[Rfam]
RNA sequence: GGGGAGCAUCCAGAGAUUGAGAUGCUUCCUGAUAUAAUCUUCCUAAAGUAAAUCUCAUAUUCUGCUUGUGACACUUGAGCUAGUUCUUCAAGUAUAUGGCUAUUUGCAUUGAG
Numbered sequence: 001g002g003g004g005a006g007c008a009u010c011c012a013g014a015g016a017u018u019g020a021g022a023u024g025c026u027u028c029c030u031g032a033u034a035u036a037a038u039c040u041u042c043c044u045a046a047a048g049u050a051a052a053u054c055u056c057a058u059a060u061u062c063u064g065c066u067u068g069u070g071a072c073a074c075u076u077g078a079g080c081u082a083g084u085u086c087u088u089c090a091a092g093u094a095u096a097u098g099g100c101u102a103u104u105u106g107c108a109u110u111g112a113g
Stems, first nucleotide, its partner, number of pairs: 001030003005026006055106001057105001064093005070087001073084003
Small nucleolar RNA snoR104: a 113-nucleotide RNA sequence from Cuscuta europaea. The family's RNA type in Rfam is H/ACA-box small nucleolar RNA. The organism belongs to Cuscuta subgen. Cuscuta, within Eukaryota. A search with the family's covariance model found it, with a score of 67 bits. The base pairs follow the family's consensus structure, which was predicted with WAR.